[Rfam]
RNA sequence: CGGGCAGGGAUUGUGUGUAUCGGCGUUGUGCUACAAAUAAAUGCACUCUGUUUCCGAAAGAGUUCCCUGCUAAAUAAAAAGUCGGCUGAGGAAGGUGGGCAGUUGUGCUUCAUCUUGCUUGUUGGGAGUUUCAACAAUCAUCUUCCUCAUAUUA
Numbered sequence: 001c002g003g004g005c006a007g008g009g010a011u012u013g014u015g016u017g018u019a020u021c022g023g024c025g026u027u028g029u030g031c032u033a034c035a036a037a038u039a040a041a042u043g044c045a046c047u048c049u050g051u052u053u054c055c056g057a058a059a060g061a062g063u064u065c066c067c068u069g070c071u072a073a074a075u076a077a078a079a080a081g082u083c084g085g086c087u088g089a090g091g092a093a094g095g096u097g098g099g100c101a102g103u104u105g106u107g108c109u110u111c112a113u114c115u116u117g118c119u120u121g122u123u124g125g126g127a128g129u130u131u132c133a134a135c136a137a138u139c140a141u142c143u144u145c146c147u148c149a150u151a152u153u154a
Stems, first nucleotide, its partner, number of pairs: 004070007015046006088148011102135004

A member of the RNA family "small nucleolar RNA snoR135" from Hevea brasiliensis, 154 nucleotides long.
The literature on the family includes a 2009 paper in Nucleic Acids Res by Chen and Wu, "Mining small RNA sequencing data: a new approach to identify small nucleolar RNAs in Arabidopsis".
The family's consensus secondary structure was predicted with RNAalifold.
Rfam links the family to the GO terms RNA processing and nucleolus.
It is annotated as an H/ACA-box small nucleolar RNA.